[Rfam]
RNA sequence: AUAUGGUAAGCAACAGUCAAGCACUGUUUCGGGAUGGCUUAUCAGAAACUCAUCAGCGGUUUUCUUUCCCUUAUCCGUUUGAGUGAU
Numbered sequence: 001a002u003a004u005g006g007u008a009a010g011c012a013a014c015a016g017u018c019a020a021g022c023a024c025u026g027u028u029u030c031g032g033g034a035u036g037g038c039u040u041a042u043c044a045g046a047a048a049c050u051c052a053u054c055a056g057c058g059g060u061u062u063u064c065u066u067u068c069c070c071u072u073a074u075c076c077g078u079u080u081g082a083g084u085g086a087u
Stems, first nucleotide, its partner, number of pairs: 005043007013027004
Dot-bracket structure: ....(((((((.((((.......)))).........)))))))............................................
Record summary:
RAGATH-35 RNA: an 87-nucleotide RNA. By type it is a small RNA.